[Rfam]
RNA sequence: GGAGAACGCUCUGGAAAAUUCUUAAGUGAAUGCCGAAGGUGCAAGGCUGCCUCGCAGCUGAAUCUCUCAGGCGAACCGACGGAGUGACACGC
Numbered sequence: 001g002g003a004g005a006a007c008g009c010u011c012u013g014g015a016a017a018a019u020u021c022u023u024a025a026g027u028g029a030a031u032g033c034c035g036a037a038g039g040u041g042c043a044a045g046g047c048u049g050c051c052u053c054g055c056a057g058c059u060g061a062a063u064c065u066c067u068c069a070g071g072c073g074a075a076c077c078g079a080c081g082g083a084g085u086g087a088c089a090c091g092c
Stems, first nucleotide, its partner, number of pairs: 007086007019030003032072003035068002039066001041064001045059004
This 92-nucleotide sequence from Berryella wangjianweii belongs to the Rfam family "Glycine riboswitch aptamer". This family represents the bacterial glycine riboswitch. The match comes from Rfam's covariance-model search (48 bits).